[Rfam]
RNA: Mason-Pfizer monkey virus packaging signal
Organism: Microcebus murinus
RNA sequence: UGGCGCCCAACGUGGGGCUCGGAUACGAGGGAUGCAGUGAGGACAUGGACGUGUGUCGCCAAAGCUCGUAGGGACCGAGCAGCUUAAAGUGAAAGUGCCUUCGACCAUUGCGGGAGCCUGCCUCGCUUGAGUAAAAGUUGAAUGCGUCUGCAAAAAUGGGCAGGAACUUAGCCAACAUCAAUUGUAUGUAACACAAUUGAGGGAAGUGUUAAAUACACGAAGAGUAAAGGUUGCAAAAGCAGAUUUGUUUAGAUUCUUUGAUUUUAUAAAGGAUGUGUGCCCCU
Numbered sequence: 001u002g003g004c005g006c007c008c009a010a011c012g013u014g015g016g017g018c019u020c021g022g023a024u025a026c027g028a029g030g031g032a033u034g035c036a037g038u039g040a041g042g043a044c045a046u047g048g049a050c051g052u053g054u055g056u057c058g059c060c061a062a063a064g065c066u067c068g069u070a071g072g073g074a075c076c077g078a079g080c081a082g083c084u085u086a087a088a089g090u091g092a093a094a095g096u097g098c099c100u101u102c103g104a105c106c107a108u109u110g111c112g113g114g115a116g117c118c119u120g121c122c123u124c125g126c127u128u129g130a131g132u133a134a135a136a137g138u139u140g141a142a143u144g145c146g147u148c149u150g151c152a153a154a155a156a157u158g159g160g161c162a163g164g165a166a167c168u169u170a171g172c173c174a175a176c177a178u179c180a181a182u183u184g185u186a187u188g189u190a191a192c193a194c195a196a197u198u199g200a201g202g203g204a205a206g207u208g209u210u211a212a213a214u215a216c217a218c219g220a221a222g223a224g225u226a227a228a229g230g231u232u233g234c235a236a237a238a239g240c241a242g243a244u245u246u247g248u249u250u251a252g253a254u255u256c257u258u259u260g261a262u263u264u265u266a267u268a269a270a271g272g273a274u275g276u277g278u279g280c281c282c283c284u
Base pairs, nucleotide, nucleotide: 006031007030008029012026013025014024036056037050038049094139095138096137100135101134105131106129107128109125110124112122113121143162144161145160148159149158150157168211170209171207172206218260219259220258221257222256223255224254225253228246229245230244231243232242269284271282272281274279
Dot-bracket structure: .....(((...(((.........)))..)))....(((..........)).....).....................................(((...((...(((.((.((.......)).))..)).)..)).)))...(((..(((......)))))).....(.(((.................................)).).)......((((((((..(((((.........)))))......))))))))........(.((.(....).)).)